RNA sequence: GGGGGCGAAACGGAUUCGACGGGGAUACAUAAGCUCAGGCUGCAUGCCGAGGAUUCCGCCAACCUCGUAAAACAGGUGGAACGUAAAUAUAGUCGCAGACGACUAUGCAUAUGCUGUGGCAGCAUAAAUAAGCCACUGCUCCCCGGUUACUCCUGCGGACCGGGUAAGAGCAUCGACUAGCGGGAUAGCUUCCGGGGUUCUCCGGUGGCUCCGGCGGCGAAACUCCACAGCGGAUAGUGCUGACAGCCCCUUGUCCUGGAGGGGCCAAGGCACGAUAAACAACCCCUUCACAGGACUAAGCAUGUAGACGCCUGCAGGGGAGUAUCUCCGGACGCGGGUUCGACUCCCGCCGCCUCCACCA
Numbered sequence: 001g002g003g004g005g006c007g008a009a010a011c012g013g014a015u016u017c018g019a020c021g022g023g024g025a026u027a028c029a030u031a032a033g034c035u036c037a038g039g040c041u042g043c044a045u046g047c048c049g050a051g052g053a054u055u056c057c058g059c060c061a062a063c064c065u066c067g068u069a070a071a072a073c074a075g076g077u078g079g080a081a082c083g084u085a086a087a088u089a090u091a092g093u094c095g096c097a098g099a100c101g102a103c104u105a106u107g108c109a110u111a112u113g114c115u116g117u118g119g120c121a122g123c124a125u126a127a128a129u130a131a132g133c134c135a136c137u138g139c140u141c142c143c144c145g146g147u148u149a150c151u152c153c154u155g156c157g158g159a160c161c162g163g164g165u166a167a168g169a170g171c172a173u174c175g176a177c178u179a180g181c182g183g184g185a186u187a188g189c190u191u192c193c194g195g196g197g198u199u200c201u202c203c204g205g206u207g208g209c210u211c212c213g214g215c216g217g218c219g220a221a222a223c224u225c226c227a228c229a230g231c232g233g234a235u236a237g238u239g240c241u242g243a244c245a246g247c248c249c250c251u252u253g254u255c256c257u258g259g260a261g262g263g264g265c266c267a268a269g270g271c272a273c274g275a276u277a278a279a280c281a282a283c284c285c286c287u288u289c290a291c292a293g294g295a296c297u298a299a300g301c302a303u304g305u306a307g308a309c310g311c312c313u314g315c316a317g318g319g320g321a322g323u324a325u326c327u328c329c330g331g332a333c334g335c336g337g338g339u340u341c342g343a344c345u346c347c348c349g350c351c352g353c354c355u356c357c358a359c360c361a
Base pairs, nucleotide, nucleotide: 001357002356003355004354005353006352007351020330021329022328023327024326025325026324027323028322036314037313038312039311040310043304044303045302046301047300048067049066050065051064052063054081055080056079057078058077059076060075116136117135119134137172138171139170140169141168144162145161146160147159148158151185152184153183154182155181156180188218189217190216192214193213194212195211196210201233202232237273238272239271240270241269248263249262250261253296254295255294256293258291334350335349336348337347338346